[Rfam]
The family of this 92-nucleotide RNA sequence from Podiceps cristatus is "Small nucleolar RNA SNORD35". A reference for the family is Nicoloso et al. (1996), "Intron-encoded, antisense small nucleolar RNAs: the characterization of nine novel species points to their direct role as guides for the 2'-O-ribose methylation of rRNAs", J Mol Biol. Rfam 15.1 lists 1,842 matches to the family in 634 species. The match comes from Rfam's covariance-model search (66 bits). By type it is a C/D-box small nucleolar RNA. Its Rfam clan is "SNORD35 clan". The source organism's lineage runs through Eukaryota, Dinosauria, Aves, Podicipedidae and Podiceps. The base pairs follow the family's consensus structure, which was predicted with PFOLD.
RNA sequence: UGGUGAUGAUGUCUGAACUCACGAUGGUCUUCAGAGCCUCUGCUGAUGAGGGGGCUGCUGACAGUGCCAGUGGCAAUCGCUGAACCGUAGGC
Numbered sequence: 001u002g003g004u005g006a007u008g009a010u011g012u013c014u015g016a017a018c019u020c021a022c023g024a025u026g027g028u029c030u031u032c033a034g035a036g037c038c039u040c041u042g043c044u045g046a047u048g049a050g051g052g053g054g055c056u057g058c059u060g061a062c063a064g065u066g067c068c069a070g071u072g073g074c075a076a077u078c079g080c081u082g083a084a085c086c087g088u089a090g091g092c
Base pairs, nucleotide, nucleotide: 001087002086003085004084